[Rfam]
RNA sequence: ACGGCUGCGGGCGGCAGCGGAACGGAUGCCCGCAGUACCAGACAGCACACCGUGUCUCGGAACAUCCGGGCACUUCAGGGCGUU
Numbered sequence: 001a002c003g004g005c006u007g008c009g010g011g012c013g014g015c016a017g018c019g020g021a022a023c024g025g026a027u028g029c030c031c032g033c034a035g036u037a038c039c040a041g042a043c044a045g046c047a048c049a050c051c052g053u054g055u056c057u058c059g060g061a062a063c064a065u066c067c068g069g070g071c072a073c074u075u076c077a078g079g080g081c082g083u084u
Base pairs, nucleotide, nucleotide: 004036005035006034007033008032009031010030011029012028013027015025052073053072054071055070056069057068059066